FMN riboswitch aptamer (RFN element): a 129-nucleotide RNA sequence from Umezawaea tangerina. NCBI's taxonomy places the organism under Bacteria, Bacillati, Actinomycetota, Pseudonocardiales, Umezawaea.
[Rfam]
RNA sequence: ACGUGCGUUCCGGGGUCGGUGGAAGUCCGAACCGGUGGUGACAGCCCACGACCCGCGUGCCCCACGGCCCGCGGUUGACCCGGUGGAACUCCGGGGCCGACGGUGAGAGUCCGGAUGAGAGGCGCGCAC
Numbered sequence: 001a002c003g004u005g006c007g008u009u010c011c012g013g014g015g016u017c018g019g020u021g022g023a024a025g026u027c028c029g030a031a032c033c034g035g036u037g038g039u040g041a042c043a044g045c046c047c048a049c050g051a052c053c054c055g056c057g058u059g060c061c062c063c064a065c066g067g068c069c070c071g072c073g074g075u076u077g078a079c080c081c082g083g084u085g086g087a088a089c090u091c092c093g094g095g096g097c098c099g100a101c102g103g104u105g106a107g108a109g110u111c112c113g114g115a116u117g118a119g120a121g122g123c124g125c126g127c128a129c
Stems, first nucleotide, its partner, number of pairs: 003129006009122002017029003031110002033099002035049004044097002053074002079095005101113003
A search with the family's covariance model found it, with a score of 84 bits.